[Rfam]
Nucleotides: 140
Stems, first nucleotide, its partner, number of pairs: 008025007026070003030067002034063005043054004074104008087124005109138006117130001
Number, partner (000 for none) and nucleotide at each position: 001000c002000a003000c004000u005000a006000a007000c008025u009024u010023g011022a012021g013020a014019g015000g016000c017000a018000a019014c020013u021012c022011u023010u024009a025008a026070c027069u028068g029000g030067c031066c032000a033000g034063a035062u036061a037060a038059g039000a040000a041000a042000a043054g044053a045052c046051c047000g048000a049000g050000a051046g052045g053044u054043u055000c056000a057000a058000g059038c060037u061036u062035a063034u064000a065000g066031g067030g068028c069027a070026g071000a072000a073000a074104g075103c076102g077101g078100g079099g080098g081097a082000c083000a084000g085000c086000a087124g088123u089122a090121c091120u092000a093000a094000a095000c096000a097081u098080u099079c100078c101077c102076u103075g104074u105000g106000g107000c108000u109138g110137a111136g112135a113134c114133g115000a116000a117130g118000g119000u120091a121090g122089u123088a124087c125000u126000c127000c128000a129000a130117c131000a132000g133114c134113g135112u136111c137110u138109c139000a140000a
A member of the RNA family "IMES-2 RNA motif", 140 nucleotides long. The sequence is in the family's curated seed alignment. The literature on the family includes a 2009 paper in Nature by Weinberg et al., "Exceptional structured noncoding RNAs revealed by bacterial metagenome analysis".